[Rfam]
Overview: Guanidine-II riboswitch aptamer (mini-ykkC): a 44-nucleotide sequence from Thauera sp. 27.

RNA sequence: CGGGGGACGACCCCCGCGGCACCGAUCCGGGCGGGACGACCCGC
Numbered sequence: 001c002g003g004g005g006g007a008c009g010a011c012c013c014c015c016g017c018g019g020c021a022c023c024g025a026u027c028c029g030g031g032c033g034g035g036a037c038g039a040c041c042c043g044c
Base pairs, nucleotide, nucleotide: 001016002015003014004013005012006011031044032043033042034041035040

Simpler in structure and has fewer highly conserved nucleotide positions than the ykkC-yxkD leader. Despite this each of its two stem-loop structures directly bind free guanidine. Therefore, mini-ykkC RNA motif represents a distinct class of guanidine-sensing RNAs. Its crystal structure was also determined.